[Rfam]
RNA sequence: UGCAAGGGCACUCUGUGUUAUACAUAAAUAAUAUGUUAGUCACAAUUUGUUACCUUGCUACAUUAAUCUACCAAACCCUAUUCCGUGCAAUUUAUAUAAUUAUUGCCUGGUCAUAUUGGUAGGUACAUAA
Numbered sequence: 001u002g003c004a005a006g007g008g009c010a011c012u013c014u015g016u017g018u019u020a021u022a023c024a025u026a027a028a029u030a031a032u033a034u035g036u037u038a039g040u041c042a043c044a045a046u047u048u049g050u051u052a053c054c055u056u057g058c059u060a061c062a063u064u065a066a067u068c069u070a071c072c073a074a075a076c077c078c079u080a081u082u083c084c085g086u087g088c089a090a091u092u093u094a095u096a097u098a099a100u101u102a103u104u105g106c107c108u109g110g111u112c113a114u115a116u117u118g119g120u121a122g123g124u125a126c127a128u129a130a
Base pairs, nucleotide, nucleotide: 002058003057004056005055006054007053010050011049014044015043016042017040018039019038020037022036023035064129065128066124067123068122070120071119072118074117075116083110084109085108087106088105090103091102
RNA: Small nucleolar RNA psi18S-841/snoR66
Organism: Leptidea sinapis